[Rfam]
RNA sequence: GCCCGUUUGGCUUAGUGGUACAGCGUCUCACUCGUAUACUUCUGCGUAAUGAGAAGAUCCUCGGUUCGAUUCCGAGAAUGGGCA
Number, nucleotide and partner (000 for none) at each position: 001g083002c082003c081004c080005g079006u078007u077008u000009g000010g024011c023012u022013u000014a000015g000016u000017g000018g000019u000020a000021c000022a012023g011024c010025g000026u054027c053028u052029c051030a050031c000032u000033c000034g000035u000036a000037u000038a000039c000040u000041u000042c000043u000044g000045c000046g000047u000048a000049a000050u030051g029052a028053g027054a026055a000056g000057a000058u000059c000060c076061u075062c074063g073064g072065u000066u000067c000068g000069a000070u000071u000072c064073c063074g062075a061076g060077a007078a006079u005080g004081g003082g002083c001084a000
The family of this 84-nucleotide RNA from Epicoccum nigrum is "tRNA".
It is annotated as a transfer RNA.
The base pairs follow the family's consensus structure, which is taken from published work.
Lineage of the source: Eukaryota > Opisthokonta > Dothideomycetes > Pleosporales > Epicoccum.